[Rfam]
RNA sequence: GCCACAUGAUGUGUUCAUGUUAAGAUGGAGCACCUCGGUGCCAGGACGACUCUUGAUCUAUCACCCAUGACUGAUGGCU
Numbered sequence: 001g002c003c004a005c006a007u008g009a010u011g012u013g014u015u016c017a018u019g020u021u022a023a024g025a026u027g028g029a030g031c032a033c034c035u036c037g038g039u040g041c042c043a044g045g046a047c048g049a050c051u052c053u054u055g056a057u058c059u060a061u062c063a064c065c066c067a068u069g070a071c072u073g074a075u076g077g078c079u
Stems, first nucleotide, its partner, number of pairs: 001078004030041004
RNA: Small nucleolar RNA SNORD83
Organism: Phascolarctos cinereus